[Rfam]
RNA sequence: ACCCCGUCCACUUCACUACGGAUCGUCCGGCACGUACCUGCCGGUGAAGGGAAGCAACGA
Numbered sequence: 001a002c003c004c005c006g007u008c009c010a011c012u013u014c015a016c017u018a019c020g021g022a023u024c025g026u027c028c029g030g031c032a033c034g035u036a037c038c039u040g041c042c043g044g045u046g047a048a049g050g051g052a053a054g055c056a057a058c059g060a
Base pairs, nucleotide, nucleotide: 009051011049012048013047014046015045027044028043029042030041031040032039

msiK RNA: a 60-nucleotide RNA sequence from Jiangella aurantiaca.
Taxonomically the source falls in Jiangella (Bacteria, Actinomycetota, Actinomycetes, Jiangellaceae).
Rfam 15.1 lists 1,374 matches to the family in 1,364 species.
A search with the family's covariance model found it, with a score of 59 bits.
Pairs were carried over by alignment from the consensus structure, which is taken from published work.